A member of the RNA family "mir-328 microRNA precursor family" from Homo sapiens, 75 nucleotides long. The organism belongs to Homo, within Eukaryota. The sequence is in the family's curated seed alignment. Pairs were carried over by alignment from the consensus structure, which was predicted with RNAalifold.

RNA sequence: UGGAGUGGGGGGGCAGGAGGGGCUCAGGGAGAAAGUGCAUACAGCCCCUGGCCCUCUCUGCCCUUCCGUCCCCUG
Number, nucleotide and partner (000 for none) at each position: 001u000002g071003g070004a069005g000006u068007g000008g066009g065010g064011g063012g062013g061014c060015a059016g058017g057018a000019g055020g054021g053022g052023c051024u000025c050026a049027g048028g047029g046030a000031g000032a000033a000034a000035g000036u000037g000038c000039a000040u000041a000042c000043a000044g000045c000046c029047c028048c027049u026050g025051g023052c022053c021054c020055u019056c000057u017058c016059u015060g014061c013062c012063c011064u010065u009066c008067c000068g006069u004070c003071c002072c000073c000074u000075g000